[Rfam]
RNA sequence: AAAGUAAGCUGGGCAAUCGCCGGUGCAAGGCCGAAAGGUCGCACGGGAGGAAAGUCCGAGCUCCAUAGGGCAGGGUGCCGGAUAACGUCCGGCGGGAGCAAUCCUAGGGACAGUGCCACAGAAAUGAAGACCGCCGAUGAAGGUGCAAACCUUACAGGCAAGGAUGCAACGGUGCGGUAAGAGCGCACCAGCGGCCUGGAGACAGGUCGGCUAGGUAAACCCCACCUGGAGCAAGACCGGAUAGGAGUGCACAUGUGGUGGCCCGCCACGCACUCGGGUUGGUCGCUGGAGCAAUCCGGCAACGGAUUGCCUAGAUAGAUGAUUGCUACUCCGCUGUGCGAGGCUUGGGGUGUCCCUAUGGAACAACAAUUUCAGAGGGACACGGACAAUCCGUUUGCAGCACUGGAGCACAAAACUCGGCUUACAGGCUUGCUUUCCAC
Numbered sequence: 001a002a003a004g005u006a007a008g009c010u011g012g013g014c015a016a017u018c019g020c021c022g023g024u025g026c027a028a029g030g031c032c033g034a035a036a037g038g039u040c041g042c043a044c045g046g047g048a049g050g051a052a053a054g055u056c057c058g059a060g061c062u063c064c065a066u067a068g069g070g071c072a073g074g075g076u077g078c079c080g081g082a083u084a085a086c087g088u089c090c091g092g093c094g095g096g097a098g099c100a101a102u103c104c105u106a107g108g109g110a111c112a113g114u115g116c117c118a119c120a121g122a123a124a125u126g127a128a129g130a131c132c133g134c135c136g137a138u139g140a141a142g143g144u145g146c147a148a149a150c151c152u153u154a155c156a157g158g159c160a161a162g163g164a165u166g167c168a169a170c171g172g173u174g175c176g177g178u179a180a181g182a183g184c185g186c187a188c189c190a191g192c193g194g195c196c197u198g199g200a201g202a203c204a205g206g207u208c209g210g211c212u213a214g215g216u217a218a219a220c221c222c223c224a225c226c227u228g229g230a231g232c233a234a235g236a237c238c239g240g241a242u243a244g245g246a247g248u249g250c251a252c253a254u255g256u257g258g259u260g261g262c263c264c265g266c267c268a269c270g271c272a273c274u275c276g277g278g279u280u281g282g283u284c285g286c287u288g289g290a291g292c293a294a295u296c297c298g299g300c301a302a303c304g305g306a307u308u309g310c311c312u313a314g315a316u317a318g319a320u321g322a323u324u325g326c327u328a329c330u331c332c333g334c335u336g337u338g339c340g341a342g343g344c345u346u347g348g349g350g351u352g353u354c355c356c357u358a359u360g361g362a363a364c365a366a367c368a369a370u371u372u373c374a375g376a377g378g379g380a381c382a383c384g385g386a387c388a389a390u391c392c393g394u395u396u397g398c399a400g401c402a403c404u405g406g407a408g409c410a411c412a413a414a415a416c417u418c419g420g421c422u423u424a425c426a427g428g429c430u431u432g433c434u435u436u437c438c439a440c
Base pairs, nucleotide, nucleotide: 001436002435003434004433005432006431007430008429009428010427011425012327013326014325015324016323017322018321020047021046023044024043025042026041028039052423053422054421056420057419058418059417060416061231062230063229064228068264069263070262071261073227074226075225076224077223078092079091080090081089082088093107094105095104096103097102108222109221113220114219115216116215117214131163132162133159134158135157138154139153140152171189172188173187174186175185176184191211192209193208194207195206196205197204198203235284236283237282238281245275246274247273248272249271250270255269256268257267258266259265291310292309293308294307295306296305297304298303
RNA: Bacterial RNase P class A